A member of the RNA family "Small nucleolar RNA snR60/Z15/Z230/Z193/J17" from Chytriomyces confervae, 95 nucleotides long.
[Rfam]
RNA sequence: ACUCGCUACAUGAUGAUACCUUAAAUUCAUUGCAUAGUUCAUCAGAAACUAUCGUGUUGAACAAUUACAUCUUUCGCUCCUAUCUUAUAGCUCCA
Numbered sequence: 001a002c003u004c005g006c007u008a009c010a011u012g013a014u015g016a017u018a019c020c021u022u023a024a025a026u027u028c029a030u031u032g033c034a035u036a037g038u039u040c041a042u043c044a045g046a047a048a049c050u051a052u053c054g055u056g057u058u059g060a061a062c063a064a065u066u067a068c069a070u071c072u073u074u075c076g077c078u079c080c081u082a083u084c085u086u087a088u089a090g091c092u093c094c095a
Stems, first nucleotide, its partner, number of pairs: 005091004